[Rfam]
RNA sequence: CCGACGAAACAGGGGUGCUUCGCGCGUCCCCGGCCUGCCGAGUCGGCACGGCCGGAUGCGCGACGAGGCUGAGAGAGACCCUUCGCACCCGAUCCGGGUAAUACCGGCGCGGGAAGUUUCCGAUCCCGCCGG
Numbered sequence: 001c002c003g004a005c006g007a008a009a010c011a012g013g014g015g016u017g018c019u020u021c022g023c024g025c026g027u028c029c030c031c032g033g034c035c036u037g038c039c040g041a042g043u044c045g046g047c048a049c050g051g052c053c054g055g056a057u058g059c060g061c062g063a064c065g066a067g068g069c070u071g072a073g074a075g076a077g078a079c080c081c082u083u084c085g086c087a088c089c090c091g092a093u094c095c096g097g098g099u100a101a102u103a104c105c106g107g108c109g110c111g112g113g114a115a116g117u118u119u120c121c122g123a124u125c126c127c128g129c130c131g132g
Stems, first nucleotide, its partner, number of pairs: 006120005011082004016076001017069005088113004094107004